[Rfam]
RNA sequence: CGUCAAGAGUCUCAGUCACACAAGCCCCGGCUGACUGAGCGGCAACCCUCCACCGCGGUGGGGUGCCCCGGGUGACGACAGGGCCGUGAACGCUGCGGCAAGCGCGGACU
Numbered sequence: 001c002g003u004c005a006a007g008a009g010u011c012u013c014a015g016u017c018a019c020a021c022a023a024g025c026c027c028c029g030g031c032u033g034a035c036u037g038a039g040c041g042g043c044a045a046c047c048c049u050c051c052a053c054c055g056c057g058g059u060g061g062g063g064u065g066c067c068c069c070g071g072g073u074g075a076c077g078a079c080a081g082g083g084c085c086g087u088g089a090a091c092g093c094u095g096c097g098g099c100a101a102g103c104g105c106g107g108a109c110u
Stems, first nucleotide, its partner, number of pairs: 002079003009040001011039006023032002041067003046063003050058002083099006
The record is a 110-nucleotide sequence from Dermacoccus sp. 147Ba, which matches "SAM (S-adenosyl methionine) riboswitch aptamer" in Rfam. A reference for the family is Weinberg et al. (2008), "The aptamer core of SAM-IV riboswitches mimics the ligand-binding site of SAM-I riboswitches", RNA.